The record is a 63-nucleotide sequence, which matches "RAGATH-18 RNA" in Rfam. From the family's description: Actinobacteria, Firmicutes, Fusobacteria, Thermotogae (1 example). The sequence is in the family's curated seed alignment.

[Rfam]
RNA sequence: CCUGUGGAUCGUUAUACAAACGAAAGUAGUUUUUUAACAAAAUCGGACGGGAUGAAGUAGGAA
Numbered sequence: 001c002c003u004g005u006g007g008a009u010c011g012u013u014a015u016a017c018a019a020a021c022g023a024a025a026g027u028a029g030u031u032u033u034u035u036a037a038c039a040a041a042a043u044c045g046g047a048c049g050g051g052a053u054g055a056a057g058u059a060g061g062a063a
Stems, first nucleotide, its partner, number of pairs: 001061005009050005021045003029038003